[Rfam]
RNA sequence: GUGCUUGGGUAAUCGCUGUAAUGGUUACAUUGCAGAGGAAAGUCCAUGCUCGCACGAACUGAGAUGUUCGUAGUGUUCGUGCCUAGCGAAGACAUAAGCUAGGGCAAUCAGUAAUGAUUGACGGCAGGAAGAACACCUAAGUCUUCGGAUAUGGUGAACUACCUUGAAAGUGCCACAGUGACGUAGCUUUACUGGAAACAGUAGAGGUGGAACGCGGUAAACCCCUCGAGCGAGCAACCCAAAUUUGGUAGGGGCAUUUUCUCCUAAGGAAAUGAACGAAGGAGAAGAAUGAGUUUAUAACUCUUAGAUAGAUGAUUACCACCGGUUCGUACGAGAUUUCCCAAUCGUUUGAGUACACCGGUACAGAACAUGGCUUACAGAG
Numbered sequence: 001g002u003g004c005u006u007g008g009g010u011a012a013u014c015g016c017u018g019u020a021a022u023g024g025u026u027a028c029a030u031u032g033c034a035g036a037g038g039a040a041a042g043u044c045c046a047u048g049c050u051c052g053c054a055c056g057a058a059c060u061g062a063g064a065u066g067u068u069c070g071u072a073g074u075g076u077u078c079g080u081g082c083c084u085a086g087c088g089a090a091g092a093c094a095u096a097a098g099c100u101a102g103g104g105c106a107a108u109c110a111g112u113a114a115u116g117a118u119u120g121a122c123g124g125c126a127g128g129a130a131g132a133a134c135a136c137c138u139a140a141g142u143c144u145u146c147g148g149a150u151a152u153g154g155u156g157a158a159c160u161a162c163c164u165u166g167a168a169a170g171u172g173c174c175a176c177a178g179u180g181a182c183g184u185a186g187c188u189u190u191a192c193u194g195g196a197a198a199c200a201g202u203a204g205a206g207g208u209g210g211a212a213c214g215c216g217g218u219a220a221a222c223c224c225c226u227c228g229a230g231c232g233a234g235c236a237a238c239c240c241a242a243a244u245u246u247g248g249u250a251g252g253g254g255c256a257u258u259u260u261c262u263c264c265u266a267a268g269g270a271a272a273u274g275a276a277c278g279a280a281g282g283a284g285a286a287g288a289a290u291g292a293g294u295u296u297a298u299a300a301c302u303c304u305u306a307g308a309u310a311g312a313u314g315a316u317u318a319c320c321a322c323c324g325g326u327u328c329g330u331a332c333g334a335g336a337u338u339u340c341c342c343a344a345u346c347g348u349u350u351g352a353g354u355a356c357a358c359c360g361g362u363a364c365a366g367a368a369c370a371u372g373g374c375u376u377a378c379a380g381a382g
Stems, first nucleotide, its partner, number of pairs: 004382003007378001008320007016035006040376003044373005049234005054071006077229003081225001082103006104122001105120006123224002126164003134156004141150003170222002172218003187206008238253003257288007289305001291303004322361005329356004
Bacterial RNase P class B: a 382-nucleotide sequence from Mangrovibacillus cuniculi. The match comes from Rfam's covariance-model search (337 bits).